Shown here is an 87-nucleotide sequence from Cnephaeus nilssonii, a member of the family "mir-9195 microRNA precursor family". Rfam 15.1 lists 438 matches to the family in 7 species. NCBI's taxonomy places the organism under Eukaryota, Metazoa, Craniata, Vertebrata, Cnephaeus.

[Rfam]
RNA sequence: AGAGGCCCGCCGCGGCCGGGGUAGAACGCUUGCCUCGUUGCCGCAGCGACAAAGCAAGCAUUCCGCCAGGUCGCUCACACUGCCCGC
Numbered sequence: 001a002g003a004g005g006c007c008c009g010c011c012g013c014g015g016c017c018g019g020g021g022u023a024g025a026a027c028g029c030u031u032g033c034c035u036c037g038u039u040g041c042c043g044c045a046g047c048g049a050c051a052a053a054g055c056a057a058g059c060a061u062u063c064c065g066c067c068a069g070g071u072c073g074c075u076c077a078c079a080c081u082g083c084c085c086g087c
Base pairs, nucleotide, nucleotide: 004084005083006082012074013073014072015071016070017069020067021066022065024063025062026061028059029058030057031056032055033054037050038049039048040047041046